[Rfam]
RNA sequence: AUACUUACCUGGCACAGGGGAUACCACGAUCACCAAGGUGGUUCCCCCAAGACGAGGCUCACCAUUGCACUCCGGUGGCGCUGACCCUUGCAAUGACCCCAAAUGUGGGUUACUCGGGUGUGUAAUUUCUGUUAGCUGGGGACUGCGUUCGCGCUUUCCCCUU
Numbered sequence: 001a002u003a004c005u006u007a008c009c010u011g012g013c014a015c016a017g018g019g020g021a022u023a024c025c026a027c028g029a030u031c032a033c034c035a036a037g038g039u040g041g042u043u044c045c046c047c048c049a050a051g052a053c054g055a056g057g058c059u060c061a062c063c064a065u066u067g068c069a070c071u072c073c074g075g076u077g078g079c080g081c082u083g084a085c086c087c088u089u090g091c092a093a094u095g096a097c098c099c100c101a102a103a104u105g106u107g108g109g110u111u112a113c114u115c116g117g118g119u120g121u122g123u124a125a126u127u128u129c130u131g132u133u134a135g136c137u138g139g140g141g142a143c144u145g146c147g148u149u150c151g152c153g154c155u156u157u158c159c160c161c162u163u
Stems, first nucleotide, its partner, number of pairs: 012121004017047005023042005049089003055082002059078005091116001093114001094112003098108002138161005145154003